[Rfam]
RNA sequence: UGACAUGAUGAACUCACUUUGGAAUCUCGUUCGGCUGAACAUUGCUGUUGAGACUCUGACUCUGAGGCUU
Numbered sequence: 001u002g003a004c005a006u007g008a009u010g011a012a013c014u015c016a017c018u019u020u021g022g023a024a025u026c027u028c029g030u031u032c033g034g035c036u037g038a039a040c041a042u043u044g045c046u047g048u049u050g051a052g053a054c055u056c057u058g059a060c061u062c063u064g065a066g067g068c069u070u
Base pairs, nucleotide, nucleotide: 025053026052027051028050029049032047033046034045035044
Annotation:
The record is a 70-nucleotide RNA sequence from Mauremys mutica, which matches "Small nucleolar RNA SNORD30" in Rfam. Taxonomically the source falls in Mauremys (Eukaryota, Bilateria, Amniota, Testudinoidea). On this family, see Tycowski et al., Nature 1996: "A mammalian gene with introns instead of exons generating stable RNA products". Its Rfam clan is "SNORD30 clan". Pairs were carried over by alignment from the consensus structure.